[Rfam]
RNA sequence: AAGUGUUCAAUUCGCCGAGCUUUCAGCGCUACCUUACCUGUGAGUAACAAGUGCUUUGAGCCGUAGUUGCGCAAGUGCUGUAACUACCAGGGUUAGACUGGAAACGAUCUAGCCUCCCGACAUUUGGAAAGGUGAUAUGUUAACAGACGA
Numbered sequence: 001a002a003g004u005g006u007u008c009a010a011u012u013c014g015c016c017g018a019g020c021u022u023u024c025a026g027c028g029c030u031a032c033c034u035u036a037c038c039u040g041u042g043a044g045u046a047a048c049a050a051g052u053g054c055u056u057u058g059a060g061c062c063g064u065a066g067u068u069g070c071g072c073a074a075g076u077g078c079u080g081u082a083a084c085u086a087c088c089a090g091g092g093u094u095a096g097a098c099u100g101g102a103a104a105c106g107a108u109c110u111a112g113c114c115u116c117c118c119g120a121c122a123u124u125u126g127g128a129a130a131g132g133u134g135a136u137a138u139g140u141u142a143a144c145a146g147a148c149g150a
Base pairs, nucleotide, nucleotide: 003144004143012135013134014133015132016131019061020060021059022058025055026054027053028052029051034047035046036045063087064086065085066084067083068082069081070080071079090115091114092113093112094111095110096109097108099106100105116127117126
RNA: Molybdenum/Tungsten riboswitch aptamer (Moco RNA motif)
Organism: Thalassotalea sp. LPB0316